[Rfam]
RNA: nrdJ RNA
RNA sequence: ACCUGUUGCGGGGCAGCCCAGUGUGCCCGCAACGCAAGACAGAAACACGUGCCCACGGGAACAAAUGGGCACUUCAGGGCGUU
Numbered sequence: 001a002c003c004u005g006u007u008g009c010g011g012g013g014c015a016g017c018c019c020a021g022u023g024u025g026c027c028c029g030c031a032a033c034g035c036a037a038g039a040c041a042g043a044a045a046c047a048c049g050u051g052c053c054c055a056c057g058g059g060a061a062c063a064a065a066u067g068g069g070c071a072c073u074u075c076a077g078g079g080c081g082u083u
Base pairs, nucleotide, nucleotide: 004034005033006032007031008030009029010028011027013026014025015024049072050071051070052069053068054067